[Rfam]
RNA sequence: AGUCUAGAUAGAGGCGCGAAGUUUAAGAGUAAAAUUGCUGAGGUAAGCACAAUGAAGCAAUUUGAAAGGAAACUUUGCCGAAGUGUACAACCAAUGCUUUAAGGUUGUAAUGCUGGGCUUGCAUAAAAUAUAUGCAAGACUGUCACAAAGUCGUUUGUGGAGAGCUAUCACUGAU
Numbered sequence: 001a002g003u004c005u006a007g008a009u010a011g012a013g014g015c016g017c018g019a020a021g022u023u024u025a026a027g028a029g030u031a032a033a034a035u036u037g038c039u040g041a042g043g044u045a046a047g048c049a050c051a052a053u054g055a056a057g058c059a060a061u062u063u064g065a066a067a068g069g070a071a072a073c074u075u076u077g078c079c080g081a082a083g084u085g086u087a088c089a090a091c092c093a094a095u096g097c098u099u100u101a102a103g104g105u106u107g108u109a110a111u112g113c114u115g116g117g118c119u120u121g122c123a124u125a126a127a128a129u130a131u132a133u134g135c136a137a138g139a140c141u142g143u144c145a146c147a148a149a150g151u152c153g154u155u156u157g158u159g160g161a162g163a164g165c166u167a168u169c170a171c172u173g174a175u
Base pairs, nucleotide, nucleotide: 007169008168009167010166011165016078017077018076019075020074021073022072023071024070032063033062034061035060036059037058038057039056082114083113084112085111086109087108088107089106090105091104092103115141116140118138119137120136121135122134123133124132125131143160144159145158146157147156148155149154